Shown here is a 77-nucleotide RNA from Mus musculus, a member of the family "mir-1912 microRNA precursor family". The family's consensus secondary structure was predicted with RNAalifold. For this family Rfam cites "Genome-wide comparative analysis of microRNAs in three non-human primates" (Brameier, BMC Res Notes, 2010).
RNA sequence: CUCUAGGAUGUGCUCAUUGCAUGGGCUGUGUAGAUUUUUAUUUAAUACACAGAACAUGCAGUGAGAACUUGAUAGAG
Numbered sequence: 001c002u003c004u005a006g007g008a009u010g011u012g013c014u015c016a017u018u019g020c021a022u023g024g025g026c027u028g029u030g031u032a033g034a035u036u037u038u039u040a041u042u043u044a045a046u047a048c049a050c051a052g053a054a055c056a057u058g059c060a061g062u063g064a065g066a067a068c069u070u071g072a073u074a075g076a077g
Base pairs, nucleotide, nucleotide: 001077002076003075004074005073008070010068011067013065015063016062017061018060019059020058021057022056023055026052027051028050030048031047032046